Rfam assigns this 100-nucleotide RNA sequence from Desulforamulus reducens to the family "Purine riboswitch aptamer".
NCBI's taxonomy places the organism under Bacteria, Bacillati, Eubacteriales, Peptococcaceae, Desulforamulus reducens.
The sequence is in the family's curated seed alignment.
[Rfam]
RNA sequence: AGUUUGUACAAAUUAAUGUUCCGUAUAUGCUUGGGAAUUGGCUCAAGUGUUUCUACCGGGCAACCGUAAUUGCCCGACUACGGGAGGGAAAGUGUACCUA
Numbered sequence: 001a002g003u004u005u006g007u008a009c010a011a012a013u014u015a016a017u018g019u020u021c022c023g024u025a026u027a028u029g030c031u032u033g034g035g036a037a038u039u040g041g042c043u044c045a046a047g048u049g050u051u052u053c054u055a056c057c058g059g060g061c062a063a064c065c066g067u068a069a070u071u072g073c074c075c076g077a078c079u080a081c082g083g084g085a086g087g088g089a090a091a092g093u094g095u096a097c098c099u100a
Stems, first nucleotide, its partner, number of pairs: 019085007029048007057076007